[Rfam]
RNA: purD RNA motif
RNA sequence: GUGGGCUUCUGGUGAGACGUGGCUUAAGUUGCGACCUAAAGGAAGUCUCUAACUGCAAGAUUGGCUUUAUUAGGGCCGAUUCAAACACGCACCGCUCACUCGGGU
Numbered sequence: 001g002u003g004g005g006c007u008u009c010u011g012g013u014g015a016g017a018c019g020u021g022g023c024u025u026a027a028g029u030u031g032c033g034a035c036c037u038a039a040a041g042g043a044a045g046u047c048u049c050u051a052a053c054u055g056c057a058a059g060a061u062u063g064g065c066u067u068u069a070u071u072a073g074g075g076c077c078g079a080u081u082c083a084a085a086c087a088c089g090c091a092c093c094g095c096u097c098a099c100u101c102g103g104g105u
Stems, first nucleotide, its partner, number of pairs: 003048007018033004023028001061079007